[Rfam]
RNA sequence: CCCGUAGUUUCGAUCAUUUUAUCCUGCCCAACUCAAAAAGUGAUAAAUGCAUCUUAACUGCGGUGA
Numbered sequence: 001c002c003c004g005u006a007g008u009u010u011c012g013a014u015c016a017u018u019u020u021a022u023c024c025u026g027c028c029c030a031a032c033u034c035a036a037a038a039a040g041u042g043a044u045a046a047a048u049g050c051a052u053c054u055u056a057a058c059u060g061c062g063g064u065g066a
Stems, first nucleotide, its partner, number of pairs: 002063008012053003018047006024040002

The record is a 66-nucleotide RNA sequence from Caenorhabditis brenneri, which matches "mir-232 microRNA precursor family" in Rfam. The family has 4 seed sequences and 11 matches in Rfam 15.1. Gene Ontology terms of the family: miRNA-mediated post-transcriptional gene silencing and RISC complex.